[Rfam]
RNA sequence: CCUCUGGAGAGACUCAUUUAUGAAUGAGCACCGAAGGAGCAAAAUAUUGAAGAAAAUAUUAUUACAUUUAUUAUUUAAAGUAGUAAAUUUUUUUAGUAUUGAAACUCUCAGGUAAAAGGACAGAGG
Numbered sequence: 001c002c003u004c005u006g007g008a009g010a011g012a013c014u015c016a017u018u019u020a021u022g023a024a025u026g027a028g029c030a031c032c033g034a035a036g037g038a039g040c041a042a043a044a045u046a047u048u049g050a051a052g053a054a055a056a057u058a059u060u061a062u063u064a065c066a067u068u069u070a071u072u073a074u075u076u077a078a079a080g081u082a083g084u085a086a087a088u089u090u091u092u093u094u095a096g097u098a099u100u101g102a103a104a105c106u107c108u109c110a111g112g113u114a115a116a117a118g119g120a121c122a123g124a125g126g
Stems, first nucleotide, its partner, number of pairs: 001126006013028004030113003033109002037107003043100013
RNA: Glycine riboswitch aptamer
Organism: Clostridium neonatale